[Rfam]
This 98-nucleotide sequence from Nothoprocta ornata belongs to the Rfam family "Z30 small nucleolar RNA". The literature on the family includes a 2002 paper in Mol Cell Biol by Galardi et al., "Purified box C/D snoRNPs are able to reproduce site-specific 2'-O-methylation of target RNA in vitro". It scores 87 bits against the family's covariance model. Rfam links the family to the GO terms RNA processing and nucleolus. Lineage of the source: Eukaryota > Bilateria > Sauropsida > Tinamidae > Nothoprocta. The base pairs follow the family's consensus structure, which was predicted with PFOLD.

RNA sequence: AAGCAAUGAUGAGCGAAGCGUUGUCUGAACUGGUAUUGCCGAGACCCCGCGUCUUUGCUCUGACCAGGGCGUGAUCACGUAAUCUUCUCUCUGAGCUU
Numbered sequence: 001a002a003g004c005a006a007u008g009a010u011g012a013g014c015g016a017a018g019c020g021u022u023g024u025c026u027g028a029a030c031u032g033g034u035a036u037u038g039c040c041g042a043g044a045c046c047c048c049g050c051g052u053c054u055u056u057g058c059u060c061u062g063a064c065c066a067g068g069g070c071g072u073g074a075u076c077a078c079g080u081a082a083u084c085u086u087c088u089c090u091c092u093g094a095g096c097u098u
Stems, first nucleotide, its partner, number of pairs: 001097001003096002038058002041055001